[Rfam]
RNA: TPP riboswitch aptamer (THI element)
Organism: Alloactinosynnema sp. L-07
RNA sequence: UCGUCACGCCACGGGAGUCCGCCUAGGCGGGCUGAGAGGAGGGGCGUGCCCUCGACCGUCCGCACCUGAUCCGGGUCAUGCCGGCGCAGGAAGGUCCUCGUGGUGCGUC
Number, nucleotide and partner (000 for none) at each position: 001u000002c000003g000004u000005c000006a000007c000008g095009c094010c093011a059012c058013g057014g056015g000016a000017g032018u031019c030020c029021g028022c000023c000024u000025a000026g000027g000028c021029g020030g019031g018032c017033u000034g000035a000036g000037a000038g000039g053040a052041g051042g050043g049044g000045c000046g000047u000048g000049c043050c042051c041052u040053c039054g000055a000056c014057c013058g012059u011060c000061c000062g000063c000064a000065c090066c089067u088068g087069a000070u000071c084072c083073g082074g081075g000076u000077c000078a000079u000080g000081c074082c073083g072084g071085c000086g000087c068088a067089g066090g065091a000092a000093g010094g009095u008096c000097c000098u000099c000100g000101u000102g000103g000104u000105g000106c000107g000108u000109c000